Overview:
The record is a 115-nucleotide RNA, which matches "Small nucleolar RNA U6-53/MBII-28" in Rfam. Rfam links the family to the GO terms RNA processing and nucleolus. For this family Rfam cites "RNomics: an experimental approach that identifies 201 candidates for novel, small, non-messenger RNAs in mouse" (Huttenhofer et al., EMBO J, 2001). Rfam classes the family as a C/D-box small nucleolar RNA.
[Rfam]
RNA sequence: UUCCAAUGAUGAGCCUGCCAUGCUAAUACUGAUGCACCAGAGUUUGACUGUGUCUCACACUGGGUGUAAGUGUGUUCAACUAAACUUCUCACACUUGCAGUGUGCUCUGAGGAAA
Numbered sequence: 001u002u003c004c005a006a007u008g009a010u011g012a013g014c015c016u017g018c019c020a021u022g023c024u025a026a027u028a029c030u031g032a033u034g035c036a037c038c039a040g041a042g043u044u045u046g047a048c049u050g051u052g053u054c055u056c057a058c059a060c061u062g063g064g065u066g067u068a069a070g071u072g073u074g075u076u077c078a079a080c081u082a083a084a085c086u087u088c089u090c091a092c093a094c095u096u097g098c099a100g101u102g103u104g105c106u107c108u109g110a111g112g113a114a115a
Stems, first nucleotide, its partner, number of pairs: 001114004042058002046054001